[Rfam]
RNA sequence: UUUCGCUAGGCUGUGGUUGCGGAUGUGCCUCUACACACAUCCUAGUCCAAGGCAGACGAGGCCAAAAGGAUCCACGUAAGUUUAGCGGGUUGCAGCUUGCUGCGCCUCGUUAAGCGAGCAUGGCUCGUCCUAGAAGUAAGUCGUACCGUUCGUUUGAAUAAAGGCAUAGGGCCUUGCGAACGAGAGCAUUAGUCGUGCGCAUACCUCAGGCAAAGCCACAAGGCCAGCCAGGGGAUAUGCAAGCAAACGUGCCAGUAUGCGAGUGUGGGGUCAAAUACCAGGUCAGCUAACGAAA
Dot-bracket structure: (((((.(((.(((((((...............................(.([..((((((.]........((........((.(.........................).)).......[))))))))............((((((((((((......................)))))))...((((.....((..............................................))....))))..)))))....).)......]...))))...)))))).)))))
Numbered sequence: 001u002u003u004c005g006c007u008a009g010g011c012u013g014u015g016g017u018u019g020c021g022g023a024u025g026u027g028c029c030u031c032u033a034c035a036c037a038c039a040u041c042c043u044a045g046u047c048c049a050a051g052g053c054a055g056a057c058g059a060g061g062c063c064a065a066a067a068g069g070a071u072c073c074a075c076g077u078a079a080g081u082u083u084a085g086c087g088g089g090u091u092g093c094a095g096c097u098u099g100c101u102g103c104g105c106c107u108c109g110u111u112a113a114g115c116g117a118g119c120a121u122g123g124c125u126c127g128u129c130c131u132a133g134a135a136g137u138a139a140g141u142c143g144u145a146c147c148g149u150u151c152g153u154u155u156g157a158a159u160a161a162a163g164g165c166a167u168a169g170g171g172c173c174u175u176g177c178g179a180a181c182g183a184g185a186g187c188a189u190u191a192g193u194c195g196u197g198c199g200c201a202u203a204c205c206u207c208a209g210g211c212a213a214a215g216c217c218a219c220a221a222g223g224c225c226a227g228c229c230a231g232g233g234g235a236u237a238u239g240c241a242a243g244c245a246a247a248c249g250u251g252c253c254a255g256u257a258u259g260c261g262a263g264u265g266u267g268g269g270g271u272c273a274a275a276u277a278c279c280a281g282g283u284c285a286g287c288u289a290a291c292g293a294a295a
Stems, first nucleotide, its partner, number of pairs: 001295005007289003011286003014280004049266001051264001052062001055129006071123002081113002084110001121273001142259005147182007186252004195244002
A member of the RNA family "raiA RNA" from Atopobium deltae, 295 nucleotides long. The source organism's lineage runs through Bacteria, Actinomycetota, Coriobacteriia, Coriobacteriales and Atopobium. It is annotated as a riboswitch.